RNA: Guanidine-I riboswitch aptamer
Organism: Saccharibacillus sacchari
RNA sequence: GCGAAUGUUUUCUAGGGUUCCGCGGCUAUAAGGUCGGACAGGUCCGAGAGAAAACUCACGGCGCAUGCCGUGCCACGGAGGGACAAAAGCCCGGGAGAU
Numbered sequence: 001g002c003g004a005a006u007g008u009u010u011u012c013u014a015g016g017g018u019u020c021c022g023c024g025g026c027u028a029u030a031a032g033g034u035c036g037g038a039c040a041g042g043u044c045c046g047a048g049a050g051a052a053a054a055c056u057c058a059c060g061g062c063g064c065a066u067g068c069c070g071u072g073c074c075a076c077g078g079a080g081g082g083a084c085a086a087a088a089g090c091c092c093g094g095g096a097g098a099u
Stems, first nucleotide, its partner, number of pairs: 007055006015045002020042002022039001023036005057072006074094001076097001080092003